[Rfam]
RNA sequence: CCCGAAAAAAGGCAAACCUGUCGAAAGGCAGGGGCGCAAAGCUACAGGGUCUAAAGCCCGGUAAGGGCCAGGACAGCCAGUUGCCGCG
Numbered sequence: 001c002c003c004g005a006a007a008a009a010a011g012g013c014a015a016a017c018c019u020g021u022c023g024a025a026a027g028g029c030a031g032g033g034g035c036g037c038a039a040a041g042c043u044a045c046a047g048g049g050u051c052u053a054a055a056g057c058c059c060g061g062u063a064a065g066g067g068c069c070a071g072g073a074c075a076g077c078c079a080g081u082u083g084c085c086g087c088g
Stems, first nucleotide, its partner, number of pairs: 012037002017032006040082004047078002049074003056068004
Rfam assigns this 88-nucleotide RNA from Neomoorella humiferrea to the family "c-di-GMP-I riboswitch aptamer".